[Rfam]
RNA sequence: UCGUAACACGAACCGGUGCUAAAGUGUCCUACCCAACGUGCUGUCGGGGCAGGGACCCUCUAGCACCGGUUCGUGUUACCAA
Numbered sequence: 001u002c003g004u005a006a007c008a009c010g011a012a013c014c015g016g017u018g019c020u021a022a023a024g025u026g027u028c029c030u031a032c033c034c035a036a037c038g039u040g041c042u043g044u045c046g047g048g049g050c051a052g053g054g055a056c057c058c059u060c061u062a063g064c065a066c067c068g069g070u071u072c073g074u075g076u077u078a079c080c081a082a
Stems, first nucleotide, its partner, number of pairs: 003079019023059002026056002029053002032048003036044002
RNA: MIR5387 microRNA precursor family